[Rfam]
RNA sequence: GGAGCAGGCCCGCCGAGUCGUGCGUAACGAGCCGGGGACCCAAGCAAGUGGGGUGAAUCCGCGGGCCGAUGGUCUGCGGUAGGGCGUCCUUCCCGCCCGAAUCCGUCAGCUAACCCGGUAGGCGGACGUGUAAGGAGAC
Number, nucleotide and partner (000 for none) at each position: 001g000002g000003a000004g000005c000006a000007g000008g000009c000010c000011c124012g123013c122014c121015g000016a000017g000018u030019c029020g028021u000022g000023c000024g000025u000026a000027a000028c020029g019030a018031g119032c118033c117034g116035g115036g114037g000038a000039c000040c000041c050042a049043a000044g000045c000046a000047a000048g000049u042050g041051g104052g103053g102054u000055g000056a000057a000058u000059c079060c078061g077062c076063g075064g074065g073066c072067c071068g000069a000070u000071g067072g066073u065074c064075u063076g062077c061078g060079g059080u000081a000082g098083g097084g096085c095086g000087u000088c000089c000090u000091u000092c000093c000094c000095g085096c084097c083098c082099g000100a000101a000102u053103c052104c051105g000106u000107c000108a000109g000110c000111u000112a000113a000114c036115c035116c034117g033118g032119u031120a000121g014122g013123c012124g011125g000126a000127c000128g000129u000130g000131u000132a000133a000134g000135g000136a000137g000138a000139c000